[Rfam]
Nucleotides: 133
Stems, first nucleotide, its partner, number of pairs: 002056006009048002012045004016040008068126005075119003083116002087112002090108001093103002
Number, partner (000 for none) and nucleotide at each position: 001000g002056g003055c004054c005053u006052u007051u008000g009048u010047g011000u012045u013044g014043c015042c016040c017039a018038u019037u020036c021035a022034u023033u024000c025000c026000u027000g028000u029000c030000c031000a032000g033023a034022a035021u036020g037019a038018a039017u040016g041000u042015g043014g044013u045012g046000u047010c048009a049000a050000a051007a052006a053005a054004g055003g056002c057000a058000a059000a060000c061000a062000a063000g064000a065000a066000g067000u068126c069125u070124u071123g072122c073000u074000u075119a076118a077117a078000c079000u080000g081000u082000u083116c084115u085000a086000a087112g088111g089000a090108a091000c092000u093103g094102g095000u096000u097000a098000u099000u100000u101000a102094c103093c104000u105000u106000u107000c108090u109000c110000c111088u112087c113000c114000c115084a116083g117077u118076u119075u120000u121000u122072g123071c124070a125069a126068g127000g128000a129000c130000a131000a132000a133000a
A member of the RNA family "Small nucleolar RNA SNORA13" from Acanthisitta chloris, 133 nucleotides long. Lineage of the source: Eukaryota > Sarcopterygii > Sauropsida > Neoaves > Acanthisitta. ACA13 is a member of the H/ACA class of snoRNA that guide the sites of modification of uridines to pseudouridines. The family's consensus secondary structure was predicted with CMfinder.